[Rfam]
RNA sequence: UCUCUCGUGGCGUAAUUGGUUAGCGCGUCCGACUGUUAAUCCAAAAGCAGGAUAUCGGAAGGUUGGAAGUUCGAGUCUUCCCGGGAGAG
Numbered sequence: 001u002c003u004c005u006c007g008u009g010g011c012g013u014a015a016u017u018g019g020u021u022a023g024c025g026c027g028u029c030c031g032a033c034u035g036u037u038a039a040u041c042c043a044a045a046a047g048c049a050g051g052a053u054a055u056c057g058g059a060a061g062g063u064u065g066g067a068a069g070u071u072c073g074a075g076u077c078u079u080c081c082c083g084g085g086a087g088a089g
Stems, first nucleotide, its partner, number of pairs: 001088007010026004028059005065081005
Rfam assigns this 89-nucleotide RNA sequence from Ophiocordyceps polyrhachis-furcata to the family "tRNA". The base pairs follow the family's consensus structure, which is taken from published work. It is annotated as a transfer RNA.